Rfam assigns this 195-nucleotide sequence from Erwinia tasmaniensis to the family "Yersinia sRNA 276". The organism belongs to Erwinia, within Bacteria. Rfam classes the family as an antisense RNA.
RNA sequence: CACCGACAUCAGGGACUCGUUUUGCGACCCCUGGCCGACGGCGAGAUAGGCAUUCAUACCCAGCUCUUUCAUCUGCUGUUCGCCGAUGACGCGCGUAGUGAUAUUUUUACUGUAGGCGUCCGCCAGCUGGCGCGCCUGCGAGGCAAGGUAGGCGGCGUUACAGAUAUUAGGCGGCAUAUUGCCGAGAUCUUUCGC
Numbered sequence: 001c002a003c004c005g006a007c008a009u010c011a012g013g014g015a016c017u018c019g020u021u022u023u024g025c026g027a028c029c030c031c032u033g034g035c036c037g038a039c040g041g042c043g044a045g046a047u048a049g050g051c052a053u054u055c056a057u058a059c060c061c062a063g064c065u066c067u068u069u070c071a072u073c074u075g076c077u078g079u080u081c082g083c084c085g086a087u088g089a090c091g092c093g094c095g096u097a098g099u100g101a102u103a104u105u106u107u108u109a110c111u112g113u114a115g116g117c118g119u120c121c122g123c124c125a126g127c128u129g130g131c132g133c134g135c136c137u138g139c140g141a142g143g144c145a146a147g148g149u150a151g152g153c154g155g156c157g158u159u160a161c162a163g164a165u166a167u168u169a170g171g172c173g174g175c176a177u178a179u180u181g182c183c184g185a186g187a188u189c190u191u192u193c194g195c
Base pairs, nucleotide, nucleotide: 005189006188012032013031014030017027018026019025020024034042035041050059062077063076064075078135079134081132082131083130084129085128087126091123092122093121095119096118099112100111102109103108136163137162138161140159141158143156144155167186168185170183171182172181